[Rfam]
RNA sequence: CACGACGUCUAAAGGCUUUUAAAGAACUCGGGAAACAACCCAACCAAACCCCACCCCACCCCCGCCCUGACCUGCAUCACUCGCACGGGUGACAUAUCGCAACAGGGCUGGAUUCGGGCCGGGUUGGCUGGCAUAUGCUCGCCGCGACAACCACAGACACGAGACGGCCCCCGCCGGGACUGCGAAUCCCGGCCGGGGGCCUGACCACGAGGAAGAAGCACCUUCCCG
Numbered sequence: 001c002a003c004g005a006c007g008u009c010u011a012a013a014g015g016c017u018u019u020u021a022a023a024g025a026a027c028u029c030g031g032g033a034a035a036c037a038a039c040c041c042a043a044c045c046a047a048a049c050c051c052c053a054c055c056c057c058a059c060c061c062c063c064g065c066c067c068u069g070a071c072c073u074g075c076a077u078c079a080c081u082c083g084c085a086c087g088g089g090u091g092a093c094a095u096a097u098c099g100c101a102a103c104a105g106g107g108c109u110g111g112a113u114u115c116g117g118g119c120c121g122g123g124u125u126g127g128c129u130g131g132c133a134u135a136u137g138c139u140c141g142c143c144g145c146g147a148c149a150a151c152c153a154c155a156g157a158c159a160c161g162a163g164a165c166g167g168c169c170c171c172c173g174c175c176g177g178g179a180c181u182g183c184g185a186a187u188c189c190c191g192g193c194c195g196g197g198g199g200c201c202u203g204a205c206c207a208c209g210a211g212g213a214a215g216a217a218g219c220a221c222c223u224u225c226c227c228g
Base pairs, nucleotide, nucleotide: 003064004063007061077092078091079090080089081088082087107143109141110140111139166201167200168199169198170197172195173194176190177189178188179187211226212225213224214223215222
This 228-nucleotide RNA from Streptomyces finlayi belongs to the Rfam family "Streptomyces sRNA 4677". It is annotated as a small RNA. Pairs were carried over by alignment from the consensus structure. NCBI's taxonomy places the organism under Bacteria, Actinomycetota, Actinomycetes, Streptomycetaceae, Streptomyces.